[Rfam]
The family of this 53-nucleotide RNA sequence is "Mu-gpT-DE RNA". The family's RNA type in Rfam is small RNA. It is one of the family's seed sequences.
RNA sequence: CCCUGACAGUCGCAUGGUGCGGCUGACUUUAGCCACGACAGGAGAUUCAAAUG
Numbered sequence: 001c002c003c004u005g006a007c008a009g010u011c012g013c014a015u016g017g018u019g020c021g022g023c024u025g026a027c028u029u030u031a032g033c034c035a036c037g038a039c040a041g042g043a044g045a046u047u048c049a050a051a052u053g
Stems, first nucleotide, its partner, number of pairs: 002042004007025005